[Rfam]
RNA sequence: CCUAGUUGUCAAAAGUUCGUACAGGUGACUUGUAAAUGUUUUGCUGACCUUCUAAUAUGAUAUAACUGGCAAAACAUUUACACGUACCUUGUAUGAACUUUUGAUUCUAGC
Numbered sequence: 001c002c003u004a005g006u007u008g009u010c011a012a013a014a015g016u017u018c019g020u021a022c023a024g025g026u027g028a029c030u031u032g033u034a035a036a037u038g039u040u041u042u043g044c045u046g047a048c049c050u051u052c053u054a055a056u057a058u059g060a061u062a063u064a065a066c067u068g069g070c071a072a073a074a075c076a077u078u079u080a081c082a083c084g085u086a087c088c089u090u091g092u093a094u095g096a097a098c099u100u101u102u103g104a105u106u107c108u109a110g111c
Base pairs, nucleotide, nucleotide: 002110003109004108005107008105009104010103011102012101013100014099015098016097017096018095019094020093021092022091023090024088025087026086027085029084031082032081033080034079035078036077037076038075039074040073041072042071043070044069051060052059
The family of this 111-nucleotide sequence from Nicotiana tabacum is "MIR6019 microRNA precursor family". Lineage of the source: Eukaryota > Embryophyta > Spermatophyta > Nicotianoideae > Nicotiana. It is one of the family's seed sequences.